[Rfam]
RNA sequence: ACUGAAAAAGCUAAACCUGCUGUGAAGCAGGGACGGAAAGCUACGGGUCUUGAAGAAAGACGGCCGGGUUGCCUGUA
Numbered sequence: 001a002c003u004g005a006a007a008a009a010g011c012u013a014a015a016c017c018u019g020c021u022g023u024g025a026a027g028c029a030g031g032g033a034c035g036g037a038a039a040g041c042u043a044c045g046g047g048u049c050u051u052g053a054a055g056a057a058a059g060a061c062g063g064c065c066g067g068g069u070u071g072c073c074u075g076u077a
Base pairs, nucleotide, nucleotide: 004073011036012035016031017030018029019028020027021026034063039070040069041068042067044066045065046064047061048060049059
A member of the RNA family "c-di-GMP-I-GGC riboswitch aptamer" from Candidatus Vecturithrix granuli, 77 nucleotides long. The base pairs follow the family's consensus structure, which is taken from published work.